Notes:
Shown here is a 156-nucleotide RNA from Paenibacillus cellulosilyticus, a member of the family "c-di-AMP riboswitch aptamer (ydaO/yuaA leader)". The match comes from Rfam's covariance-model search (100 bits). Taxonomically the source falls in Paenibacillus (Bacteria, Bacillati, Bacillota, Bacilli). Rfam's curators write: This family represents a conserved RNA structure found upstream of the ydaO and yuaA genes in Bacillus subtilis and related genes in other bacteria.
RNA sequence: AUCACAUAUUCGCUGAAUUUCUGAAAGGAAAACGGGGGAACCAACGGCGCUCAUGCAGCAUGCUGCGCCAGGGGUGAAUCGGUGUUCACACAUCGUAGGGCGACUUCAACCGCCCGAAUCCGACAGCUAACCUCGUAAGCGUUGUUGAGGGGGGAC
Numbered sequence: 001a002u003c004a005c006a007u008a009u010u011c012g013c014u015g016a017a018u019u020u021c022u023g024a025a026a027g028g029a030a031a032a033c034g035g036g037g038g039a040a041c042c043a044a045c046g047g048c049g050c051u052c053a054u055g056c057a058g059c060a061u062g063c064u065g066c067g068c069c070a071g072g073g074g075u076g077a078a079u080c081g082g083u084g085u086u087c088a089c090a091c092a093u094c095g096u097a098g099g100g101c102g103a104c105u106u107c108a109a110c111c112g113c114c115c116g117a118a119u120c121c122g123a124c125a126g127c128u129a130a131c132c133u134c135g136u137a138a139g140c141g142u143u144g145u146u147g148a149g150g151g152g153g154g155a156c
Stems, first nucleotide, its partner, number of pairs: 011141004018031003032136006042071001072121003080095004098115004